[Rfam]
RNA sequence: AGAGGCCCUCCUCGGUCGGGGUGGAACGCUUGCCUCGUCGCCAUGGCGAUGAAGCAAGCAUUCCACCAGGCCGCUCACACUGCCCGC
Number, nucleotide and partner (000 for none) at each position: 001a000002g000003a000004g084005g083006c082007c000008c000009u000010c000011c000012u000013c073014g072015g071016u070017c069018g000019g000020g067021g066022u065023g064024g063025a062026a061027c000028g059029c058030u057031u056032g055033c054034c000035u000036c000037g050038u049039c048040g047041c046042c000043a000044u000045g000046g041047c040048g039049a038050u037051g000052a000053a000054g033055c032056a031057a030058g029059c028060a000061u026062u025063c024064c023065a022066c021067c020068a000069g017070g016071c015072c014073g013074c000075u000076c000077a000078c000079a000080c000081u000082g006083c005084c004085c000086g000087c000

The record is an 87-nucleotide sequence from Myotis brandtii, which matches "mir-9195 microRNA precursor family" in Rfam. NCBI's taxonomy places the organism under Eukaryota, Metazoa, Vertebrata, Laurasiatheria, Myotis. Gene Ontology terms of the family: RISC complex and miRNA-mediated post-transcriptional gene silencing. A search with the family's covariance model found it, with a score of 96 bits.